Rfam assigns this 139-nucleotide RNA to the family "FMN riboswitch aptamer (RFN element)".
RNA sequence: AUAUGUUCUCAGGGCGGAGUGAAAUUCUCCACCGGUGGUAAUUCAUAAAACAAAAAAGUGAUAAGUCCACGAGCACAGAUGUGUUGAUUUGGUGAAAGUCCAAAACCGACGGUGAAAGUCCGGAUGGAAGAGAAUAUGA
Numbered sequence: 001a002u003a004u005g006u007u008c009u010c011a012g013g014g015c016g017g018a019g020u021g022a023a024a025u026u027c028u029c030c031a032c033c034g035g036u037g038g039u040a041a042u043u044c045a046u047a048a049a050a051c052a053a054a055a056a057a058g059u060g061a062u063a064a065g066u067c068c069a070c071g072a073g074c075a076c077a078g079a080u081g082u083g084u085u086g087a088u089u090u091g092g093u094g095a096a097a098g099u100c101c102a103a104a105a106c107c108g109a110c111g112g113u114g115a116a117a118g119u120c121c122g123g124a125u126g127g128a129a130g131a132g133a134a135u136a137u138g139a
Stems, first nucleotide, its partner, number of pairs: 003137008017029003031119002033108002035070004065106002073084003088104005110122003